[Rfam]
Description:
Rfam assigns this 237-nucleotide sequence from Streptomyces sp. WM4235 to the family "Streptomyces sRNA 4677". The organism belongs to Streptomyces, within Bacteria. It is annotated as a small RNA. Rfam describes the family as follows. Located in the intergenic region between anti-sigma factor SCO4677 gene and a putative regulatory protein gene SCO4676. scr4677 expression requires the SCO4677 activity and scr4677 sRNA itself seem to affect the levels of the SCO4676-associated transcripts.
RNA sequence: CGUCGCGGUGGGCCACGACGUUUGGUGUAAGUACUCCGGAAGCGAAAGAACCACGCCAGACCCCUCCAGCCUCCCGCGGGGUGCGUGUCGCUCACACGGGUGAACUACGCCAACCGGGCUGGCUCGCACGGGGGUUGUCGGGCAUAUGCUCGCCGCGACAACCCCAGACAUGCGUCGGCCCCCGACGGGACUCGCAAUCCCGGCGGGGGCCUACCAACAAGGAAGUAGCGCUUCCCG
Number, nucleotide and partner (000 for none) at each position: 001c000002g000003u000004c000005g000006c000007g218008g000009u216010g215011g000012g000013c000014c000015a000016c000017g000018a000019c076020g075021u000022u000023u000024g000025g000026u000027g000028u000029a000030a000031g000032u000033a000034c000035u000036c000037c000038g000039g000040a000041a000042g000043c000044g000045a000046a000047a000048g000049a000050a000051c000052c000053a000054c000055g000056c000057c000058a000059g000060a000061c000062c000063c000064c000065u000066c000067c000068a000069g000070c000071c000072u000073c000074c000075c020076g019077c000078g000079g000080g000081g000082u000083g000084c000085g000086u000087g000088u103089c102090g101091c100092u099093c098094a000095c000096a000097c000098g093099g092100g091101u090102g089103a088104a000105c000106u000107a000108c000109g000110c000111c000112a000113a000114c000115c000116g000117g000118g154119c000120u152121g151122g150123c000124u000125c000126g000127c000128a000129c000130g000131g000132g000133g000134g000135u000136u000137g000138u000139c000140g000141g000142g000143c000144a000145u000146a000147u000148g000149c000150u122151c121152g120153c000154c118155g000156c000157g000158a000159c000160a000161a000162c000163c000164c000165c000166a000167g000168a000169c000170a000171u000172g000173c000174g000175u000176c000177g211178g210179c209180c208181c207182c000183c205184g204185a000186c000187g201188g200189g199190a198191c000192u000193c000194g000195c000196a000197a000198u190199c189200c188201c187202g000203g000204c184205g183206g000207g181208g180209g179210c178211c177212u000213a000214c000215c010216a009217a000218c007219a000220a000221g235222g234223a233224a232225g231226u000227a000228g000229c000230g000231c225232u224233u223234c222235c221236c000237g000
A search with the family's covariance model found it, with a score of 96 bits. On this family, see Hindra et al., PLoS One 2014: "Complex intra-operonic dynamics mediated by a small RNA in Streptomyces coelicolor".